[Rfam]
RNA sequence: GAGCCGGCUUAGCCGAGUGGGUACUUCUUAUUUCAAGCGAACUUAUGUUGAUAGUCACUUCAAGCCAUUUGGUUUCCCAUUGGCGCAAUCCGACUUUUUU
Numbered sequence: 001g002a003g004c005c006g007g008c009u010u011a012g013c014c015g016a017g018u019g020g021g022u023a024c025u026u027c028u029u030a031u032u033u034c035a036a037g038c039g040a041a042c043u044u045a046u047g048u049u050g051a052u053a054g055u056c057a058c059u060u061c062a063a064g065c066c067a068u069u070u071g072g073u074u075u076c077c078c079a080u081u082g083g084c085g086c087a088a089u090c091c092g093a094c095u096u097u098u099u100u
Stems, first nucleotide, its partner, number of pairs: 002095002005092003012084004017080004027072002
The record is a 100-nucleotide RNA from Dimorphilus gyrociliatus, which matches "Vault RNA" in Rfam. A search with the family's covariance model found it, with a score of 43 bits.